Guanidine-I riboswitch aptamer: a 123-nucleotide RNA from Leptolyngbya boryana. NCBI's taxonomy places the organism under Bacteria, Cyanobacteriota, Leptolyngbyales, Leptolyngbyaceae, Leptolyngbya boryana. Rfam links the family to the GO term regulation of gene expression.

[Rfam]
RNA sequence: CAAAUUUGCUUCUAGGGUUCCGGUUCAAUGUUGAGUUGAAUGGCUGGUCCAAGAGAAGCCGCUUUUCUAGAGUUGAGAACAUCUUCUAGAUAAGUUACACGGAGGGAUAAAAGCCCGGGAGAG
Numbered sequence: 001c002a003a004a005u006u007u008g009c010u011u012c013u014a015g016g017g018u019u020c021c022g023g024u025u026c027a028a029u030g031u032u033g034a035g036u037u038g039a040a041u042g043g044c045u046g047g048u049c050c051a052a053g054a055g056a057a058g059c060c061g062c063u064u065u066u067c068u069a070g071a072g073u074u075g076a077g078a079a080c081a082u083c084u085u086c087u088a089g090a091u092a093a094g095u096u097a098c099a100c101g102g103a104g105g106g107a108u109a110a111a112a113g114c115c116c117g118g119g120a121g122a123g
Base pairs, nucleotide, nucleotide: 008059009058010057011056012055015050016049020047021046022044023041024040025039026038027037028036061096062094063093064092066090067089068088069087070086071085072084098118100121104116105115106114